[Rfam]
RNA: Group II catalytic intron D1-D4-3
RNA sequence: AGCAUCGUGAGGUGUUGGCUGAAGGAAGCCGCAGGCAAAACACUGGCUCGACGAACAGAAAUCGCAUACGAGGCGGUCGUACUGGGUAAGGAGGCCAAUAUCUUCAAAGCCCGAUACUUGUACGGAAAGUACGGACGUAAAUGCGGCGGGCAUAAGUGUGAAGGUCGCGUGUC
Numbered sequence: 001a002g003c004a005u006c007g008u009g010a011g012g013u014g015u016u017g018g019c020u021g022a023a024g025g026a027a028g029c030c031g032c033a034g035g036c037a038a039a040a041c042a043c044u045g046g047c048u049c050g051a052c053g054a055a056c057a058g059a060a061a062u063c064g065c066a067u068a069c070g071a072g073g074c075g076g077u078c079g080u081a082c083u084g085g086g087u088a089a090g091g092a093g094g095c096c097a098a099u100a101u102c103u104u105c106a107a108a109g110c111c112c113g114a115u116a117c118u119u120g121u122a123c124g125g126a127a128a129g130u131a132c133g134g135a136c137g138u139a140a141a142u143g144c145g146g147c148g149g150g151c152a153u154a155a156g157u158g159u160g161a162a163g164g165u166c167g168c169g170u171g172u173c
Base pairs, nucleotide, nucleotide: 001016002015003014004013005012006011028173030171031170032169035165036164040159041158042157043156044155046151047150048149049148050147062146063145064144065143066142067141073138074137075136077134078133079132080131081130082129083128084112085111086110087109090105091104092103093102